[Rfam]
RNA sequence: UUGAAGUUCCAUUUCUUAAUAGAUAAGGUUUUUCCCUAACAUAUAGGAGGAAUUUUUGAAGGAAGGAAAGCCGGAAAUACCCAAUAUCCUGUUGAAACAAGAUAUUGGGUAUUUCUUUGUU
Numbered sequence: 001u002u003g004a005a006g007u008u009c010c011a012u013u014u015c016u017u018a019a020u021a022g023a024u025a026a027g028g029u030u031u032u033u034c035c036c037u038a039a040c041a042u043a044u045a046g047g048a049g050g051a052a053u054u055u056u057u058g059a060a061g062g063a064a065g066g067a068a069a070g071c072c073g074g075a076a077a078u079a080c081c082c083a084a085u086a087u088c089c090u091g092u093u094g095a096a097a098c099a100a101g102a103u104a105u106u107g108g109g110u111a112u113u114u115c116u117u118u119g120u121u
Stems, first nucleotide, its partner, number of pairs: 008023002011020002063121002066118003074115007082107003086103003090099001

The family of this 121-nucleotide RNA from Paspalum vaginatum is "Plastid-psbA-1 3UTR RNA". The organism belongs to Paspalum, within Eukaryota. The family's consensus secondary structure was predicted with LocARNA. About the family: Plastid psbA-1 is a non-coding RNA (ncRNA) present in plastids. It was identified in inverted repeat sequences in the 3 prime untranslate region (3UTR) of photosystem II quinone-binding protein (psbA). It scores 64 bits against the family's covariance model.